Rfam assigns this 143-nucleotide RNA from Odoribacter sp. CAG:788 to the family "RT-3 RNA". The family's consensus secondary structure is taken from published work. NCBI's taxonomy places the organism under Bacteria, Pseudomonadati, Bacteroidota, Bacteroidales, Odoribacter. By type it is a small RNA.
RNA sequence: AAUGACAUUAAACAAUCGGUACGUGUGCCGGCGUGGAAGUCAGGAGGACAAACCACAGCAAAAGCGGAGCAAUCCGGAAAGCUGAAAAACAAAGCGUGGGUAGAGCUUGGUAGGGCGGCAACGUCUCGAAAAUCUUAGACCCG
Numbered sequence: 001a002a003u004g005a006c007a008u009u010a011a012a013c014a015a016u017c018g019g020u021a022c023g024u025g026u027g028c029c030g031g032c033g034u035g036g037a038a039g040u041c042a043g044g045a046g047g048a049c050a051a052a053c054c055a056c057a058g059c060a061a062a063a064g065c066g067g068a069g070c071a072a073u074c075c076g077g078a079a080a081g082c083u084g085a086a087a088a089a090c091a092a093a094g095c096g097u098g099g100g101u102a103g104a105g106c107u108u109g110g111u112a113g114g115g116c117g118g119c120a121a122c123g124u125c126u127c128g129a130a131a132a133u134c135u136u137a138g139a140c141c142c143g
Stems, first nucleotide, its partner, number of pairs: 003042004012034002017030005044054001056084004065076004097143005103136003107132002113126005
Dot-bracket structure: ..((((.....((...(((((....)))))..))....)))).(.........).((((.....((((....))))....))))............(((((.(((.((....(((((....)))))....)).)))..)))))